[Rfam]
The record is a 100-nucleotide RNA sequence from Acholeplasma palmae, which matches "Purine riboswitch aptamer" in Rfam.

RNA sequence: UGGUAUACUAAAAUUAUAAAUCAUAUAAUUGACCUAAUAUGGUGGUCUAGUUUCUACCACACAACCUUAUUGUGUGACUAUGAUAAAGAUUCUUGUAAUU
Numbered sequence: 001u002g003g004u005a006u007a008c009u010a011a012a013a014u015u016a017u018a019a020a021u022c023a024u025a026u027a028a029u030u031g032a033c034c035u036a037a038u039a040u041g042g043u044g045g046u047c048u049a050g051u052u053u054c055u056a057c058c059a060c061a062c063a064a065c066c067u068u069a070u071u072g073u074g075u076g077a078c079u080a081u082g083a084u085a086a087a088g089a090u091u092c093u094u095g096u097a098a099u100u
Stems, first nucleotide, its partner, number of pairs: 020084006029049001031047004058076007